[Rfam]
RNA sequence: UAUGUGCGACUAGGAUGGAGGCUGAAAAGCUCAGAAAUUGGGUGUUGUCAUCAGCUUCGUCUCCUGUUAGAUGAGAUUGGAGUUAAAUAACAGCACAAGAUUA
Numbered sequence: 001u002a003u004g005u006g007c008g009a010c011u012a013g014g015a016u017g018g019a020g021g022c023u024g025a026a027a028a029g030c031u032c033a034g035a036a037a038u039u040g041g042g043u044g045u046u047g048u049c050a051u052c053a054g055c056u057u058c059g060u061c062u063c064c065u066g067u068u069a070g071a072u073g074a075g076a077u078u079g080g081a082g083u084u085a086a087a088u089a090a091c092a093g094c095a096c097a098a099g100a101u102u103a
Stems, first nucleotide, its partner, number of pairs: 042096006053084006060076004